Shown here is an 85-nucleotide RNA from Bacillus sp. DNRA2, a member of the family "Glycine riboswitch aptamer".

RNA sequence: CUCUGGAGAGUGCUUCGCAUCAUGUUGAAGCCACCAAAGGGGAAAGCCGGUUUUUUUAGGUAAACUUUCAGGUGCCAGGACAGAG
Number, nucleotide and partner (000 for none) at each position: 001c085002u084003c083004u082005g081006g000007a000008g000009a000010g000011u000012g031013c030014u029015u028016c027017g026018c000019a000020u000021c000022a000023u000024g000025u000026u017027g016028a015029a014030g013031c012032c000033a073034c072035c071036a000037a068038a000039g000040g067041g066042g065043a000044a000045a000046g000047c059048c000049g000050g000051u000052u000053u000054u000055u000056u000057u000058a000059g047060g000061u000062a000063a000064a000065c042066u041067u040068u037069c000070a000071g035072g034073u033074g000075c000076c000077a000078g000079g000080a000081c005082a004083g003084a002085g001
Rfam describes the family as follows. This family represents the bacterial glycine riboswitch. Its family is annotated with glycine biosynthetic process in the Gene Ontology. The organism belongs to Bacillus, within Bacteria.